[Rfam]
RNA sequence: UAUAGUUAUGAGCCGUUCCCGAGAGGAUAAGAGGUUGGGACUGGAAACGUCACAACGGACUAGCAAUGGCUAUGAAAACAGUCGUGGUAGUUACUCUUAGAUGCCUUGUAACCGCAAUUUUUCAAGGGGGAAUUUUAAAGUG
Numbered sequence: 001u002a003u004a005g006u007u008a009u010g011a012g013c014c015g016u017u018c019c020c021g022a023g024a025g026g027a028u029a030a031g032a033g034g035u036u037g038g039g040a041c042u043g044g045a046a047a048c049g050u051c052a053c054a055a056c057g058g059a060c061u062a063g064c065a066a067u068g069g070c071u072a073u074g075a076a077a078a079c080a081g082u083c084g085u086g087g088u089a090g091u092u093a094c095u096c097u098u099a100g101a102u103g104c105c106u107u108g109u110a111a112c113c114g115c116a117a118u119u120u121u122u123c124a125a126g127g128g129g130g131a132a133u134u135u136u137a138a139a140g141u142g
Stems, first nucleotide, its partner, number of pairs: 016132005023107004028099005112127002

SAM-III riboswitch aptamer (SMK box): a 142-nucleotide sequence from Lactiplantibacillus kimchii. Pairs were carried over by alignment from the consensus structure, which is taken from published work. The source organism's lineage runs through Bacteria, Bacillota, Lactobacillales, Lactobacillaceae and Lactiplantibacillus.